[Rfam]
RNA: mir-44 microRNA precursor family
Organism: Caenorhabditis bovis
RNA sequence: GUUGAUCCACGCUGGAUGUGCUCGUUAGUCAUAUGCAUCAACCGACACUAUGACUAGAGACACAUUCAGCUUGGCGUAAAC
Numbered sequence: 001g002u003u004g005a006u007c008c009a010c011g012c013u014g015g016a017u018g019u020g021c022u023c024g025u026u027a028g029u030c031a032u033a034u035g036c037a038u039c040a041a042c043c044g045a046c047a048c049u050a051u052g053a054c055u056a057g058a059g060a061c062a063c064a065u066u067c068a069g070c071u072u073g074g075c076g077u078a079a080a081c
Stems, first nucleotide, its partner, number of pairs: 007074003012069009022060002027055007